[Rfam]
RNA sequence: CUGAGCUAGUGAUGAUAAAAAGUUAUCCCUGUCUGAAACUGAUCUUUCCUCUGUGGAAGUAUCAUUCUGAGGCUCAG
Numbered sequence: 001c002u003g004a005g006c007u008a009g010u011g012a013u014g015a016u017a018a019a020a021a022g023u024u025a026u027c028c029c030u031g032u033c034u035g036a037a038a039c040u041g042a043u044c045u046u047u048c049c050u051c052u053g054u055g056g057a058a059g060u061a062u063c064a065u066u067c068u069g070a071g072g073c074u075c076a077g
Stems, first nucleotide, its partner, number of pairs: 001077007
Dot-bracket structure: (((((((...............................................................)))))))
Overview: A member of the RNA family "Small nucleolar RNA R38" from Calyptomena viridis, 77 nucleotides long. Gene Ontology terms of the family: RNA processing and nucleolus. NCBI's taxonomy places the organism under Eukaryota, Eumetazoa, Chordata, Sarcopterygii, Calyptomena. Pairs were carried over by alignment from the consensus structure, which was predicted with PFOLD. snoR38 is a C/D box small nucleolar RNA conserved across yeast, human, Arabidopsis and rice. It is encoded in the intron of elongation factor-1 gamma in both pombe and cerevisiae. snoR38 guides the methylation of 2'-O-ribose sites in 28S rRNA. The match comes from Rfam's covariance-model search (58 bits). It is annotated as a C/D-box small nucleolar RNA.